A member of the RNA family "Plastid-psbA-1 3UTR RNA" from Amborella trichopoda, 108 nucleotides long. About the family: Plastid psbA-1 is a non-coding RNA (ncRNA) present in plastids. It was identified in inverted repeat sequences in the 3 prime untranslate region (3UTR) of photosystem II quinone-binding protein (psbA). The source organism's lineage runs through Eukaryota, Streptophyta, Streptophytina, Euphyllophyta and Amborella. A search with the family's covariance model found it, with a score of 101 bits. It is annotated as a cis-regulatory element. The family is grouped with related families in Rfam's "Plastid-psbA 3UTR RNA clan". Pairs were carried over by alignment from the consensus structure, which was predicted with LocARNA.

[Rfam]
RNA sequence: UUGAAGCUCCAUCGACAAAUGGAUAAGACUUCGUUCUUAGUGUAUAUGCGUUGUUGAAGGAACAAUACCAAAUGUCUUGUUCAACAAGACAUUUGGUAUUGUUCUGUU
Numbered sequence: 001u002u003g004a005a006g007c008u009c010c011a012u013c014g015a016c017a018a019a020u021g022g023a024u025a026a027g028a029c030u031u032c033g034u035u036c037u038u039a040g041u042g043u044a045u046a047u048g049c050g051u052u053g054u055u056g057a058a059g060g061a062a063c064a065a066u067a068c069c070a071a072a073u074g075u076c077u078u079g080u081u082c083a084a085c086a087a088g089a090c091a092u093u094u095g096g097u098a099u100u101g102u103u104c105u106g107u108u
Stems, first nucleotide, its partner, number of pairs: 008023005059105010070094003074090005